[Rfam]
RNA sequence: GGGGUGCGGGAUAGACUUACCUCCUCGUGGUGCACCCUGGGCAAUGUAUACUCAUACGGCAAAUAAGUCAAU
Numbered sequence: 001g002g003g004g005u006g007c008g009g010g011a012u013a014g015a016c017u018u019a020c021c022u023c024c025u026c027g028u029g030g031u032g033c034a035c036c037c038u039g040g041g042c043a044a045u046g047u048a049u050a051c052u053c054a055u056a057c058g059g060c061a062a063a064u065a066a067g068u069c070a071a072u
Stems, first nucleotide, its partner, number of pairs: 001038007019031003045058005
RNA: HDV ribozyme from F. prausnitzii